A member of the RNA family "Staphylococcus-1 RNA", 131 nucleotides long. It is one of the family's seed sequences.
[Rfam]
RNA sequence: UUCAAUGAACUGCUCACUUUUAAUUAAUAUUAAAAGUUUGACUGACUAAUCUUCUGUAAUGCUAUUAUGAGGAUUGCCCUUUGAGGCUUAUAGCGAUAGGUGUCCUAUGGUUGGUCACAUGAUUCGUUGAA
Numbered sequence: 001u002u003c004a005a006u007g008a009a010c011u012g013c014u015c016a017c018u019u020u021u022a023a024u025u026a027a028u029a030u031u032a033a034a035a036g037u038u039u040g041a042c043u044g045a046c047u048a049a050u051c052u053u054c055u056g057u058a059a060u061g062c063u064a065u066u067a068u069g070a071g072g073a074u075u076g077c078c079c080u081u082u083g084a085g086g087c088u089u090a091u092a093g094c095g096a097u098a099g100g101u102g103u104c105c106u107a108u109g110g111u112u113g114g115u116c117a118c119a120u121g122a123u124u125c126g127u128u129g130a131a
Stems, first nucleotide, its partner, number of pairs: 001131009016037009040116007048075007061094005096108005